[Rfam]
RNA sequence: UUUAAGUGCAACCAUGAGUUUCCGCGCCCAACUUUAGUCAUCCGUCUUAUUUGAAAUUUUUCCGUAAUUAGUAUUUUUGUUGUUAUGAGAUGAUAAAACGAAUAGUACUUUAUGCAUGACUUAUGUUUUUUAGUUUUUUUAAAAAAAAUUUUAAAUAAGACGGACGAUUAAAAUUGGGUGUGGAAACUCAUCGCUGAACUUGAA
Numbered sequence: 001u002u003u004a005a006g007u008g009c010a011a012c013c014a015u016g017a018g019u020u021u022c023c024g025c026g027c028c029c030a031a032c033u034u035u036a037g038u039c040a041u042c043c044g045u046c047u048u049a050u051u052u053g054a055a056a057u058u059u060u061u062c063c064g065u066a067a068u069u070a071g072u073a074u075u076u077u078u079g080u081u082g083u084u085a086u087g088a089g090a091u092g093a094u095a096a097a098a099c100g101a102a103u104a105g106u107a108c109u110u111u112a113u114g115c116a117u118g119a120c121u122u123a124u125g126u127u128u129u130u131u132a133g134u135u136u137u138u139u140u141a142a143a144a145a146a147a148a149u150u151u152u153a154a155a156u157a158a159g160a161c162g163g164a165c166g167a168u169u170a171a172a173a174u175u176g177g178g179u180g181u182g183g184a185a186a187c188u189c190a191u192c193g194c195u196g197a198a199c200u201u202g203a204a
Stems, first nucleotide, its partner, number of pairs: 027178005033172007041164010

Annotation
The record is a 204-nucleotide RNA sequence from Oryza nivara, which matches "MIR812 microRNA precursor family" in Rfam. The family has 22 seed sequences and 57,451 matches in Rfam 15.1. It scores 181 bits against the family's covariance model. The family's consensus secondary structure was predicted with RNAalifold.